[Rfam]
RNA sequence: UGCUUUUUUUGCCCAGGCGGAGCUCGACCGUCGACUCAAGUAUUAAAUGACUUUGUGGACAAGCAUCGGGACAUACACGGGGUCGAGCCAAUCUGCAAAGUUUUGCAGAUUGCCCCG
Number, nucleotide and partner (000 for none) at each position: 001u000002g000003c000004u000005u000006u000007u000008u000009u000010u000011g000012c000013c000014c000015a000016g032017g031018c030019g029020g028021a000022g000023c000024u000025c000026g000027a000028c020029c019030g018031u017032c016033g000034a000035c000036u000037c000038a000039a000040g000041u000042a000043u000044u000045a000046a000047a000048u000049g000050a000051c000052u000053u000054u000055g000056u000057g000058g000059a000060c000061a000062a000063g000064c000065a000066u000067c000068g000069g000070g000071a000072c000073a000074u000075a000076c000077a000078c117079g116080g115081g114082g113083u000084c000085g000086a000087g000088c000089c112090a111091a000092u109093c108094u107095g106096c105097a104098a103099a000100g000101u000102u000103u098104u097105g096106c095107a094108g093109a092110u000111u090112g089113c082114c081115c080116c079117g078
Rfam assigns this 117-nucleotide RNA from Betaproteobacteria bacterium MOLA814 to the family "ALIL pseudoknot". Pairs were carried over by alignment from the consensus structure, which is taken from published work. It scores 112 bits against the family's covariance model. For this family Rfam cites "Apical loop-internal loop RNA pseudoknots: a new type of stimulator of -1 translational frameshifting in bacteria" (Mazauric et al., J Biol Chem, 2008).